Background
This 88-nucleotide sequence from Nitratireductor basaltis belongs to the Rfam family "Glycine riboswitch aptamer". The source organism's lineage runs through Bacteria, Pseudomonadota, Hyphomicrobiales, Phyllobacteriaceae and Nitratireductor. A search with the family's covariance model found it, with a score of 68 bits. Gene Ontology term of the family: glycine biosynthetic process.

[Rfam]
RNA sequence: AUACCGUUUGCGGGAGAGAGCAGCGACUUGCUGCCGCCGAAGGGGAAAUCGCCCGAAAUCUCUCAGGCAAAUGAACCGUAAGCGGGAC
Numbered sequence: 001a002u003a004c005c006g007u008u009u010g011c012g013g014g015a016g017a018g019a020g021c022a023g024c025g026a027c028u029u030g031c032u033g034c035c036g037c038c039g040a041a042g043g044g045g046a047a048a049u050c051g052c053c054c055g056a057a058a059u060c061u062c063u064c065a066g067g068c069a070a071a072u073g074a075a076c077c078g079u080a081a082g083c084g085g086g087a088c
Stems, first nucleotide, its partner, number of pairs: 006083008020034004036068003039064002043062003049056002